Record summary:
This 128-nucleotide RNA from Carya illinoinensis belongs to the Rfam family "U11 spliceosomal RNA". Rfam classes the family as a spliceosomal small nuclear RNA. The base pairs follow the family's consensus structure, which is taken from published work. The source organism's lineage runs through Eukaryota, Gunneridae, rosids, fabids and Carya.

RNA sequence: UAAAAGGGUCGGUUGGCUAAUUAUGCCACGCUCGCCCUUGACUGGUGAGUGCUGUAUGGCUAUCAAGACAUAUGGCCGACAUAAUUUGUGGAACCUUACAGGGUUGGCUCGUUUUGGCCGACCCUCCC
Numbered sequence: 001u002a003a004a005a006g007g008g009u010c011g012g013u014u015g016g017c018u019a020a021u022u023a024u025g026c027c028a029c030g031c032u033c034g035c036c037c038u039u040g041a042c043u044g045g046u047g048a049g050u051g052c053u054g055u056a057u058g059g060c061u062a063u064c065a066a067g068a069c070a071u072a073u074g075g076c077c078g079a080c081a082u083a084a085u086u087u088g089u090g091g092a093a094c095c096u097u098a099c100a101g102g103g104u105u106g107g108c109u110c111g112u113u114u115u116g117g118c119c120g121a122c123c124c125u126c127c128c
Base pairs, nucleotide, nucleotide: 008080009079010078011077012076014028015027016026017025029051030050031049032048033047034046035045036044052075053074054073055072056071057070058069100125101124102123103122104121105120106119107118109117110116111115